RNA sequence: GCAUGGAUGAAUUCUGCCCUAGCUCUCCUCAGUAGCUGGUGCAGUCAGACACCAUGCCAGAGCAAAUUCCUUUUCCCACUGUGCCUGGUGUGCUUUUUGAUGGGAUGAGCAUGCCCUUGGAAGGGGAGCACAU
Numbered sequence: 001g002c003a004u005g006g007a008u009g010a011a012u013u014c015u016g017c018c019c020u021a022g023c024u025c026u027c028c029u030c031a032g033u034a035g036c037u038g039g040u041g042c043a044g045u046c047a048g049a050c051a052c053c054a055u056g057c058c059a060g061a062g063c064a065a066a067u068u069c070c071u072u073u074u075c076c077c078a079c080u081g082u083g084c085c086u087g088g089u090g091u092g093c094u095u096u097u098u099g100a101u102g103g104g105a106u107g108a109g110c111a112u113g114c115c116c117u118u119g120g121a122a123g124g125g126g127a128g129c130a131c132a133u
Stems, first nucleotide, its partner, number of pairs: 001057006014044004019039001070124006087115009

Overview: This 133-nucleotide RNA sequence from Setophaga kirtlandii belongs to the Rfam family "Small nucleolar RNA SNORA15". On this family, see Huttenhofer et al., EMBO J 2001: "RNomics: an experimental approach that identifies 201 candidates for novel, small, non-messenger RNAs in mouse". Pairs were carried over by alignment from the consensus structure, which was predicted with RNAfold. A search with the family's covariance model found it, with a score of 67 bits. About the family: ACA15 is a member of the H/ACA class of snoRNA that guide the sites of modification of uridines to pseudouridines. Gene Ontology terms of the family: nucleolus and RNA processing.